[Rfam]
RNA sequence: UGUGGUUUGAGAGUAAAGUCCGGACAGUACGAAAGGAACCCUGGACUGAGGCCUCUAGUGUAUCUGUUGUCCGAAAGGGCAAAUGCAGAGUAGCUACGCCUCACAGUUGUAAGAGCUGAAAGCAUCUAAGCUCGAAAGACUACUCAAAAAGAAACCGCAUCCACUCUCGUACAAGACGAGUUGAUAGAGUGGCGGUGUAAGAUCCAAGGCAACGAGGAUUUCAGCCGACCACUACUAAUCGUGGGUUCU
Numbered sequence: 001u002g003u004g005g006u007u008u009g010a011g012a013g014u015a016a017a018g019u020c021c022g023g024a025c026a027g028u029a030c031g032a033a034a035g036g037a038a039c040c041c042u043g044g045a046c047u048g049a050g051g052c053c054u055c056u057a058g059u060g061u062a063u064c065u066g067u068u069g070u071c072c073g074a075a076a077g078g079g080c081a082a083a084u085g086c087a088g089a090g091u092a093g094c095u096a097c098g099c100c101u102c103a104c105a106g107u108u109g110u111a112a113g114a115g116c117u118g119a120a121a122g123c124a125u126c127u128a129a130g131c132u133c134g135a136a137a138g139a140c141u142a143c144u145c146a147a148a149a150a151g152a153a154a155c156c157g158c159a160u161c162c163a164c165u166c167u168c169g170u171a172c173a174a175g176a177c178g179a180g181u182u183g184a185u186a187g188a189g190u191g192g193c194g195g196u197g198u199a200a201g202a203u204c205c206a207a208g209g210c211a212a213c214g215a216g217g218a219u220u221u222c223a224g225c226c227g228a229c230c231a232c233u234a235c236u237a238a239u240c241g242u243g244g245g246u247u248c249u
Stems, first nucleotide, its partner, number of pairs: 001159008011145004017047007048102005056096003063089005068081005106140003113133005161244004166180004185237003188233005193227003201220005208213001
Notes
The family of this 249-nucleotide part of an RNA from Candidatus Nanohalobium constans is "Archaeal large subunit ribosomal RNA". Lineage of the source: Archaea > Candidatus Nanohalobia > Candidatus Nanohalobiales > Candidatus Nanohalobiaceae > Candidatus Nanohalobium. For this family Rfam cites "The comparative RNA web (CRW) site: an online database of comparative sequence and structure information for ribosomal, intron, and other RNAs" (Cannone et al., BMC Bioinformatics, 2002). Its family is annotated with ribosome and structural constituent of ribosome in the Gene Ontology.